[Rfam]
RNA sequence: UGGGCAUCAAUGAAGAGUAAAAUCCUAUGUUAUCCUUGCACAUUGAUAUACAGUGAUGAAAUUAUGGGGGAAUUUGAUCUGAGAUGCUU
Numbered sequence: 001u002g003g004g005c006a007u008c009a010a011u012g013a014a015g016a017g018u019a020a021a022a023u024c025c026u027a028u029g030u031u032a033u034c035c036u037u038g039c040a041c042a043u044u045g046a047u048a049u050a051c052a053g054u055g056a057u058g059a060a061a062u063u064a065u066g067g068g069g070g071a072a073u074u075u076g077a078u079c080u081g082a083g084a085u086g087c088u089u
Base pairs, nucleotide, nucleotide: 002089003088004087005086006085007084008083
A member of the RNA family "Small nucleolar RNA snoR26" from Chenopodium quinoa, 89 nucleotides long. It scores 70 bits against the family's covariance model. For this family Rfam cites "Multiple snoRNA gene clusters from Arabidopsis" (Brown et al., RNA, 2001).